Description
Pseudomonas sRNA P27: a 202-nucleotide sequence from Stutzerimonas stutzeri. Lineage of the source: Bacteria > Pseudomonadales > Pseudomonadaceae > Stutzerimonas > Stutzerimonas stutzeri. By type it is a small RNA. The match comes from Rfam's covariance-model search (170 bits).
[Rfam]
RNA sequence: CGGGUUUACUCCUGGUUUUUACCGUUUCGUCAGGCCGAAGCCCGACGGCGUUUUGGUGUCUGAUUCGGUACGAAUCGGGAGCACCAUCUGCGUAGGUUCAAGAGAUCACUCUCCGGGUUUAAGGCUUGCGCCACCUACGGUCUUGGAUAGCCCCCGCCAGGCAGGGACCCCAAUCUUGCGAGCCGCCUCACGAAUGAGGCGA
Numbered sequence: 001c002g003g004g005u006u007u008a009c010u011c012c013u014g015g016u017u018u019u020u021a022c023c024g025u026u027u028c029g030u031c032a033g034g035c036c037g038a039a040g041c042c043c044g045a046c047g048g049c050g051u052u053u054u055g056g057u058g059u060c061u062g063a064u065u066c067g068g069u070a071c072g073a074a075u076c077g078g079g080a081g082c083a084c085c086a087u088c089u090g091c092g093u094a095g096g097u098u099c100a101a102g103a104g105a106u107c108a109c110u111c112u113c114c115g116g117g118u119u120u121a122a123g124g125c126u127u128g129c130g131c132c133a134c135c136u137a138c139g140g141u142c143u144u145g146g147a148u149a150g151c152c153c154c155c156g157c158c159a160g161g162c163a164g165g166g167a168c169c170c171c172a173a174u175c176u177u178g179c180g181a182g183c184c185g186c187c188u189c190a191c192g193a194a195u196g197a198g199g200c201g202a
Stems, first nucleotide, its partner, number of pairs: 002170006011161004023050002028047004033042003054086006060078007090157003095152004117148010184201006